[Rfam]
RNA: U7 small nuclear RNA
RNA sequence: AAGUGUUACAGCUCUCUAAGAAUUUGUCUAGAAGAUUUUCUAGUUUUCACUAGAAAACUCUU
Numbered sequence: 001a002a003g004u005g006u007u008a009c010a011g012c013u014c015u016c017u018a019a020g021a022a023u024u025u026g027u028c029u030a031g032a033a034g035a036u037u038u039u040c041u042a043g044u045u046u047u048c049a050c051u052a053g054a055a056a057a058c059u060c061u062u
Stems, first nucleotide, its partner, number of pairs: 034059001036057009